A member of the RNA family "Small nucleolar RNA R64/Z200 family" from Zea mays, 98 nucleotides long. The base pairs follow the family's consensus structure, which was predicted with PFOLD. A reference for the family is Marker et al. (2002), "Experimental RNomics: identification of 140 candidates for small non-messenger RNAs in the plant Arabidopsis thaliana", Curr Biol. It is annotated as a C/D-box small nucleolar RNA.
[Rfam]
RNA sequence: UGAAAGCUAUGAUGAAUCUUGAAAAUUAUAUUCGCAUGUUAGAUUUCAGAGAUGUGGUGGCAUUAACGAGAAUUGUUUCAUCUAUGCAAUGAGCAUCG
Numbered sequence: 001u002g003a004a005a006g007c008u009a010u011g012a013u014g015a016a017u018c019u020u021g022a023a024a025a026u027u028a029u030a031u032u033c034g035c036a037u038g039u040u041a042g043a044u045u046u047c048a049g050a051g052a053u054g055u056g057g058u059g060g061c062a063u064u065a066a067c068g069a070g071a072a073u074u075g076u077u078u079c080a081u082c083u084a085u086g087c088a089a090u091g092a093g094c095a096u097c098g
Stems, first nucleotide, its partner, number of pairs: 001098002004096001006094002051064004